[Rfam]
This 99-nucleotide RNA from Planomicrobium sp. YIM 101495 belongs to the Rfam family "Guanidine-I riboswitch aptamer".
RNA sequence: ACAAAUGUUUUCUAGGGUUCCGCAGCGCACGCUGGCCUGGUCCGAGAGAAAACUCACAGCGUUCUAGCUGUGCCACGGAGGGACAAAAGCCUGGGAGAA
Numbered sequence: 001a002c003a004a005a006u007g008u009u010u011u012c013u014a015g016g017g018u019u020c021c022g023c024a025g026c027g028c029a030c031g032c033u034g035g036c037c038u039g040g041u042c043c044g045a046g047a048g049a050a051a052a053c054u055c056a057c058a059g060c061g062u063u064c065u066a067g068c069u070g071u072g073c074c075a076c077g078g079a080g081g082g083a084c085a086a087a088a089g090c091c092u093g094g095g096a097g098a099a
Stems, first nucleotide, its partner, number of pairs: 007053006015043002020040002022037001023034004055072006074094001076097001080092003
Background
A reference for the family is Nelson et al. (2017), "Metabolism of Free Guanidine in Bacteria Is Regulated by a Widespread Riboswitch Class", Mol Cell. Lineage of the source: Bacteria > Bacillota > Bacilli > Caryophanales > Planomicrobium. Its family is annotated with regulation of gene expression in the Gene Ontology.